[Rfam]
RNA sequence: ACGCAGGGCAAGGCCCAGUCCCGUGAAAGCCGGGACCGCCCCUUCGGGGGCGCGGCGCUCAUGCCUGCUGAA
Numbered sequence: 001a002c003g004c005a006g007g008g009c010a011a012g013g014c015c016c017a018g019u020c021c022c023g024u025g026a027a028a029g030c031c032g033g034g035a036c037c038g039c040c041c042c043u044u045c046g047g048g049g050g051c052g053c054g055g056c057g058c059u060c061a062u063g064c065c066u067g068c069u070g071a072a
Stems, first nucleotide, its partner, number of pairs: 004067004013056003016029001018036001020034003037052006

Rfam assigns this 72-nucleotide RNA to the family "Twister_sister_ribozyme". Rfam links the family to the GO term catalytic activity. Rfam's curators put it in the seed alignment.